This 233-nucleotide RNA from Salinarimonas soli belongs to the Rfam family "permuted transfer-messenger RNA". The match comes from Rfam's covariance-model search (118 bits). The literature on the family includes a 2002 paper in Nucleic Acids Res by Laslett et al., "BRUCE: a program for the detection of transfer-messenger RNA genes in nucleotide sequences".

RNA sequence: GAUCGUAGAGGCAGUUCAGAAUAGACGUUAGGGACGGGGGUUCAAUUCCCCCCACCUCCACCAUGACGGCAGGCGGGUUCUGCCGUGAUGGGGGGGGUGACAUGGGUUCGACCUGGCGUGGUAAAGGUCCGGCUGCGAUUAGGCUGAGGUACGGCCUGGACUAUGUCCGAAUGUCCGCAAUCACAACUGCCAACGACAACGUUGACAUGCGUGCGGUCCGCCUCGCGGCGUGA
Numbered sequence: 001g002a003u004c005g006u007a008g009a010g011g012c013a014g015u016u017c018a019g020a021a022u023a024g025a026c027g028u029u030a031g032g033g034a035c036g037g038g039g040g041u042u043c044a045a046u047u048c049c050c051c052c053c054a055c056c057u058c059c060a061c062c063a064u065g066a067c068g069g070c071a072g073g074c075g076g077g078u079u080c081u082g083c084c085g086u087g088a089u090g091g092g093g094g095g096g097g098u099g100a101c102a103u104g105g106g107u108u109c110g111a112c113c114u115g116g117c118g119u120g121g122u123a124a125a126g127g128u129c130c131g132g133c134u135g136c137g138a139u140u141a142g143g144c145u146g147a148g149g150u151a152c153g154g155c156c157u158g159g160a161c162u163a164u165g166u167c168c169g170a171a172u173g174u175c176c177g178c179a180a181u182c183a184c185a186a187c188u189g190c191c192a193a194c195g196a197c198a199a200c201g202u203u204g205a206c207a208u209g210c211g212u213g214c215g216g217u218c219c220g221c222c223u224c225g226c227g228g229c230g231u232g233a
Base pairs, nucleotide, nucleotide: 001140002139003138004137005136014130017127026118027117028116030114031113032112036052037051038050039049040048053099054098055097056096057095058094059093141157142156143155144154